mir-146 microRNA precursor family: an 89-nucleotide RNA from Synaphobranchus kaupii. Taxonomically the source falls in Synaphobranchus (Eukaryota, Metazoa, Eumetazoa, Deuterostomia). Gene Ontology terms of the family: miRNA-mediated post-transcriptional gene silencing and RISC complex. It scores 63 bits against the family's covariance model.
RNA sequence: GUGAGUUUGCGGCUGUGAGAACUGAAUUCCAAGGGUUGUGAGUUCAAGCUCAGCCCGUGGACCUCAGUUCUUCAGCUUGGUGCUCCUCU
Numbered sequence: 001g002u003g004a005g006u007u008u009g010c011g012g013c014u015g016u017g018a019g020a021a022c023u024g025a026a027u028u029c030c031a032a033g034g035g036u037u038g039u040g041a042g043u044u045c046a047a048g049c050u051c052a053g054c055c056c057g058u059g060g061a062c063c064u065c066a067g068u069u070c071u072u073c074a075g076c077u078u079g080g081u082g083c084u085c086c087u088c089u
Stems, first nucleotide, its partner, number of pairs: 008080001011077003018071008033056004
Dot-bracket structure: .......(..(((....((((((((.......((((................)))).......))))))))...)))..).........